[Rfam]
RNA sequence: UUCUUAUCAAGAGCAGGCGGAGGGACCAGCCCUAUGAAGCCCGGCAACCGACUUUUAACAAGCACGGUGCUAAUUCUUGCAGCAGUAUUUUUGCUGAGAGAUAAGAC
Numbered sequence: 001u002u003c004u005u006a007u008c009a010a011g012a013g014c015a016g017g018c019g020g021a022g023g024g025a026c027c028a029g030c031c032c033u034a035u036g037a038a039g040c041c042c043g044g045c046a047a048c049c050g051a052c053u054u055u056u057a058a059c060a061a062g063c064a065c066g067g068u069g070c071u072a073a074u075u076c077u078u079g080c081a082g083c084a085g086u087a088u089u090u091u092u093g094c095u096g097a098g099a100g101a102u103a104a105g106a107c
Stems, first nucleotide, its partner, number of pairs: 002106007013042001016041003022032003026079001028077002043071004048067002050063001052062002075099001080096006
Dot-bracket structure: .(((((((....(..(((...(((.[.[[)))......))))((((.(((.((.......)))..))))))...(]].]((((((.....))))))..)))))))).

Shown here is a 107-nucleotide sequence from Rossellomorea aquimaris, a member of the family "SAM riboswitch aptamer (S box leader)".
Rfam describes the family as follows. The SAM riboswitch is found upstream of a number of genes which code for proteins involved in methionine or cysteine biosynthesis in Gram-positive bacteria.
The source organism's lineage runs through Bacteria, Bacillati, Bacillota, Bacilli and Rossellomorea.
Pairs were carried over by alignment from the consensus structure, which is taken from published work.